[Rfam]
RNA sequence: CCCAGGGCUCAUGCUCUGGGCUGGCAGAUUUCACCCCUUCGGGGUU
Dot-bracket structure: ((((((((....))))))))............(((((...))))).
Shown here is a 46-nucleotide RNA sequence from Fimbriimonas ginsengisoli, a member of the family "Acido-Lenti-1 RNA". The family has 87 seed sequences and 2,607 matches in Rfam 15.1. The source organism's lineage runs through Bacteria, Bacillati, Armatimonadota, Fimbriimonadaceae and Fimbriimonas ginsengisoli.